[Rfam]
Microsporidia small subunit ribosomal RNA: a 517-nucleotide part of an RNA from Paranucleospora theridion.
It is one of the family's seed sequences.
The literature on the family includes a 2002 paper in BMC Bioinformatics by Cannone et al., "The comparative RNA web (CRW) site: an online database of comparative sequence and structure information for ribosomal, intron, and other RNAs".
Pairs were carried over by alignment from the consensus structure, which is taken from published work.
The family is grouped with related families in Rfam's "SSU clan".
RNA sequence: UGACGGAAGAUCACCACAAGGAGUGGAUUGUACUGCUUAAUUUGACUCAACACGGGAAAACUUACCAGGGCCAAGUCUCUCGUAGAUUGGCGACAUGAGAGGGGCAAGAGUGGUGCAUGGCCGUUGGAAAUUGAUGGGAUGACCUUUAGCUUAAGUGCUGUAACCAGUGAGAUCUUCUAGACAGGUGUCUUACUGACACAGGAAGGAGAAGGCUAUAACAGGUCCGUGAUGCCCUCAGAUGCCCUGGGCCGCAAGUGCAAUACAAUAUCCGUUUGAGCGACAUAAAUAUGCUUACGGAUGAGUAGGAUUAGCUCUUGUAAAUGAGCUAUGAAUGAGGAAUUCCUAGUAACUGUGUCUCAUCAAGGCACAGUGAAUGCGUCCCUGUUCUUUGUACACACCGCCCGUCACUAUUGCGGAUGGCAAUCAAGAUGAAGAGCCUAGGUUCUGAAUAUUGAUCGUUAGACAUAAUACAAGUCGUAACAAGGUAACGAUUGGAGAACCAGCCGUUGGAUCAUUC
Numbered sequence: 001u002g003a004c005g006g007a008a009g010a011u012c013a014c015c016a017c018a019a020g021g022a023g024u025g026g027a028u029u030g031u032a033c034u035g036c037u038u039a040a041u042u043u044g045a046c047u048c049a050a051c052a053c054g055g056g057a058a059a060a061c062u063u064a065c066c067a068g069g070g071c072c073a074a075g076u077c078u079c080u081c082g083u084a085g086a087u088u089g090g091c092g093a094c095a096u097g098a099g100a101g102g103g104g105c106a107a108g109a110g111u112g113g114u115g116c117a118u119g120g121c122c123g124u125u126g127g128a129a130a131u132u133g134a135u136g137g138g139a140u141g142a143c144c145u146u147u148a149g150c151u152u153a154a155g156u157g158c159u160g161u162a163a164c165c166a167g168u169g170a171g172a173u174c175u176u177c178u179a180g181a182c183a184g185g186u187g188u189c190u191u192a193c194u195g196a197c198a199c200a201g202g203a204a205g206g207a208g209a210a211g212g213c214u215a216u217a218a219c220a221g222g223u224c225c226g227u228g229a230u231g232c233c234c235u236c237a238g239a240u241g242c243c244c245u246g247g248g249c250c251g252c253a254a255g256u257g258c259a260a261u262a263c264a265a266u267a268u269c270c271g272u273u274u275g276a277g278c279g280a281c282a283u284a285a286a287u288a289u290g291c292u293u294a295c296g297g298a299u300g301a302g303u304a305g306g307a308u309u310a311g312c313u314c315u316u317g318u319a320a321a322u323g324a325g326c327u328a329u330g331a332a333u334g335a336g337g338a339a340u341u342c343c344u345a346g347u348a349a350c351u352g353u354g355u356c357u358c359a360u361c362a363a364g365g366c367a368c369a370g371u372g373a374a375u376g377c378g379u380c381c382c383u384g385u386u387c388u389u390u391g392u393a394c395a396c397a398c399c400g401c402c403c404g405u406c407a408c409u410a411u412u413g414c415g416g417a418u419g420g421c422a423a424u425c426a427a428g429a430u431g432a433a434g435a436g437c438c439u440a441g442g443u444u445c446u447g448a449a450u451a452u453u454g455a456u457c458g459u460u461a462g463a464c465a466u467a468a469u470a471c472a473a474g475u476c477g478u479a480a481c482a483a484g485g486u487a488a489c490g491a492u493u494g495g496a497g498a499a500c501c502a503g504c505c506g507u508u509g510g511a512u513c514a515u516u517c
Stems, first nucleotide, its partner, number of pairs: 001395002003392003007389004012384002016379002020343005025263001027261008035252002041056004065247007075105006088095002109235002112233004118229001119227001120223003123219004130168004135163001136145003147160004174211004182202001185199005267299006304333001309328006349371008400481001403477002406474001409470005415464001418461004423456005429450002433446005486509005492503004